[Rfam]
RNA: Lysine riboswitch aptamer
Organism: Clostridia bacterium
RNA sequence: UAUUUAGAUAGAGGAGCAUGUUUCAUGAUGAGCUAUUUCGAGAAUAUACGGUAUUCUUUGACAAUUAGCGAAAGGGAACCGUGCCGAAGAGCGUCAUUGCCGUUACAUUGACCUUCUGGUCUUAUGGUGAACAACUAUACGACUGUCAUCAAAUCGCUUGAUGGAGUGCUAUCUGUACU
Numbered sequence: 001u002a003u004u005u006a007g008a009u010a011g012a013g014g015a016g017c018a019u020g021u022u023u024c025a026u027g028a029u030g031a032g033c034u035a036u037u038u039c040g041a042g043a044a045u046a047u048a049c050g051g052u053a054u055u056c057u058u059u060g061a062c063a064a065u066u067a068g069c070g071a072a073a074g075g076g077a078a079c080c081g082u083g084c085c086g087a088a089g090a091g092c093g094u095c096a097u098u099g100c101c102g103u104u105a106c107a108u109u110g111a112c113c114u115u116c117u118g119g120u121c122u123u124a125u126g127g128u129g130a131a132c133a134a135c136u137a138u139a140c141g142a143c144u145g146u147c148a149u150c151a152a153a154u155c156g157c158u159u160g161a162u163g164g165a166g167u168g169c170u171a172u173c174u175g176u177a178c179u
Stems, first nucleotide, its partner, number of pairs: 006174006016084005022078003032069004037064002088117004093112004098107002118144004123139006146164007